[Rfam]
RNA: Glycine riboswitch aptamer
Organism: Spiribacter salinus
RNA sequence: CACGCUAUAGCGGGAGAGUUCGGUUCGACGCAGCGCGAAUCGACGCCGAAGGAGCAACGGCCCCGGAAUCUCUCAGGCAAAAGGACCGCUGGCGCGUG
Numbered sequence: 001c002a003c004g005c006u007a008u009a010g011c012g013g014g015a016g017a018g019u020u021c022g023g024u025u026c027g028a029c030g031c032a033g034c035g036c037g038a039a040u041c042g043a044c045g046c047c048g049a050a051g052g053a054g055c056a057a058c059g060g061c062c063c064c065g066g067a068a069u070c071u072c073u074c075a076g077g078c079a080a081a082a083g084g085a086c087c088g089c090u091g092g093c094g095c096g097u098g
Stems, first nucleotide, its partner, number of pairs: 008091006020043008045078003048074002052072003058065002